Source information: Rfam assigns this 92-nucleotide RNA from Cephalotus follicularis to the family "Small nucleolar RNA snoR14". The family's RNA type in Rfam is C/D-box small nucleolar RNA. The family is grouped with related families in Rfam's "SNORD110 clan". The source organism's lineage runs through Eukaryota, Streptophyta, Gunneridae, Oxalidales and Cephalotus. On this family, see Brown et al., RNA 2001: "Multiple snoRNA gene clusters from Arabidopsis". Pairs were carried over by alignment from the consensus structure. It scores 91 bits against the family's covariance model.
[Rfam]
RNA sequence: GCGAGGUGAUGAUAGAAAUUCAUUGAGUCUGUCAAUCCACUGACUAAUUUUACUGUGUGAUGUUACAUUGAAUCCCGACAGGUUCUGAUCGC
Numbered sequence: 001g002c003g004a005g006g007u008g009a010u011g012a013u014a015g016a017a018a019u020u021c022a023u024u025g026a027g028u029c030u031g032u033c034a035a036u037c038c039a040c041u042g043a044c045u046a047a048u049u050u051u052a053c054u055g056u057g058u059g060a061u062g063u064u065a066c067a068u069u070g071a072a073u074c075c076c077g078a079c080a081g082g083u084u085c086u087g088a089u090c091g092c
Stems, first nucleotide, its partner, number of pairs: 001092004